[Rfam]
RNA sequence: UCCCUCUCGUCAAGCGCCUGACUUGUGCGGGAAUCGAUGGCCGCUAUCCAUAGCGAGCCUUCAGGGCGGAACGCGCGGUCCGUGCCCGGCACGGCAUGUCGCAUGCGGUCGACGCGAGCCCCCAACGGCAAGUGUCGCCGCCGCCCGAAUGCGCCGCGUGCGCCGGAAAAAAGGCCUUCAUCCGAGGAUGAAGGCCUUUUACU
Dot-bracket structure: ..(.((((((..(((....)..))..))))))...)..(((((((......)))).)))....((((.....((((...(((((.....)))))...).)))..(((..((((....................)))).))).))))....((((.....)))).....((((((((((((((....))))))))))))))...
Numbered sequence: 001u002c003c004c005u006c007u008c009g010u011c012a013a014g015c016g017c018c019u020g021a022c023u024u025g026u027g028c029g030g031g032a033a034u035c036g037a038u039g040g041c042c043g044c045u046a047u048c049c050a051u052a053g054c055g056a057g058c059c060u061u062c063a064g065g066g067c068g069g070a071a072c073g074c075g076c077g078g079u080c081c082g083u084g085c086c087c088g089g090c091a092c093g094g095c096a097u098g099u100c101g102c103a104u105g106c107g108g109u110c111g112a113c114g115c116g117a118g119c120c121c122c123c124a125a126c127g128g129c130a131a132g133u134g135u136c137g138c139c140g141c142c143g144c145c146c147g148a149a150u151g152c153g154c155c156g157c158g159u160g161c162g163c164c165g166g167a168a169a170a171a172a173g174g175c176c177u178u179c180a181u182c183c184g185a186g187g188a189u190g191a192a193g194g195c196c197u198u199u200u201a202c203u
Stems, first nucleotide, its partner, number of pairs: 003036001005032006013024002015020001039059003042055004064146004073102003076098001080094005105141003110137004151163004169200014